[Rfam]
RNA sequence: AGAUAUGUUCGUAGAAUAGCGAACAGGAUAAUCAAAAGAAAUAUUCAAUAGAA
Numbered sequence: 001a002g003a004u005a006u007g008u009u010c011g012u013a014g015a016a017u018a019g020c021g022a023a024c025a026g027g028a029u030a031a032u033c034a035a036a037a038g039a040a041a042u043a044u045u046c047a048a049u050a051g052a053a
Stems, first nucleotide, its partner, number of pairs: 006025006014046004
Rfam assigns this 53-nucleotide RNA sequence from Fusobacterium necrogenes to the family "6A RNA". Lineage of the source: Bacteria > Fusobacteriia > Fusobacteriales > Fusobacteriaceae > Fusobacterium.